[Rfam]
RNA: MIR398 microRNA precursor family
Organism: Nyssa sinensis
RNA sequence: GCAUACCCCAGAGGAGUGACACUUAGAACACACAUGUUUUGGCUGACACUGAGUGGGCUAAUGAUCUGUGUUCUCAGGUCACCCCUUUGGGGCACCC
Numbered sequence: 001g002c003a004u005a006c007c008c009c010a011g012a013g014g015a016g017u018g019a020c021a022c023u024u025a026g027a028a029c030a031c032a033c034a035u036g037u038u039u040u041g042g043c044u045g046a047c048a049c050u051g052a053g054u055g056g057g058c059u060a061a062u063g064a065u066c067u068g069u070g071u072u073c074u075c076a077g078g079u080c081a082c083c084c085c086u087u088u089g090g091g092g093c094a095c096c097c
Stems, first nucleotide, its partner, number of pairs: 007091002011087004016082004025074008